The record is a 137-nucleotide sequence from Ruminococcus sp. AF31-8BH, which matches "FMN riboswitch aptamer (RFN element)" in Rfam. The base pairs follow the family's consensus structure, which is taken from published work. Lineage of the source: Bacteria > Bacillati > Bacillota > Clostridia > Ruminococcus.
[Rfam]
RNA sequence: AAAUUUCUUCGGGGCAGGGUGAUCGAGAACUUGAAUAUCGAAAUUCCCUACCGGCGGUAUAGUCCGCGACCCGCUUAGGCGGCUGAUUUGGUGAAAUUCCAAAACCGACAGUAAAGUCUGGAUGAGAGAAGAACGCG
Numbered sequence: 001a002a003a004u005u006u007c008u009u010c011g012g013g014g015c016a017g018g019g020u021g022a023u024c025g026a027g028a029a030c031u032u033g034a035a036u037a038u039c040g041a042a043a044u045u046c047c048c049u050a051c052c053g054g055c056g057g058u059a060u061a062g063u064c065c066g067c068g069a070c071c072c073g074c075u076u077a078g079g080c081g082g083c084u085g086a087u088u089u090g091g092u093g094a095a096a097u098u099c100c101a102a103a104a105c106c107g108a109c110a111g112u113a114a115a116g117u118c119u120g121g122a123u124g125a126g127a128g129a130a131g132a133a134c135g136c137g
Base pairs, nucleotide, nucleotide: 005133006132007131008130009129010128017048018047019046050117051116052107053106054067055066056065057064062105063104071082072081087103088102089101090100091099109120110119111118